mir-26 microRNA precursor family: an 81-nucleotide sequence from Hymenochirus boettgeri. A reference for the family is Lagos-Quintana et al. (2001), "Identification of novel genes coding for small expressed RNAs", Science.

RNA sequence: CUGUCUCCUAAUGCAAGUAAUCAAGAAUAGGCCACACAGAAUAUGAACAGCCUAUCCUGGAUUACUUGAACUGGGCAACAA
Numbered sequence: 001c002u003g004u005c006u007c008c009u010a011a012u013g014c015a016a017g018u019a020a021u022c023a024a025g026a027a028u029a030g031g032c033c034a035c036a037c038a039g040a041a042u043a044u045g046a047a048c049a050g051c052c053u054a055u056c057c058u059g060g061a062u063u064a065c066u067u068g069a070a071c072u073g074g075g076c077a078a079c080a081a
Base pairs, nucleotide, nucleotide: 002080003079004078007075008074009073010072012070014068015067016066017065018064019063020062021061022060024058025057027055028054029053030052031051032050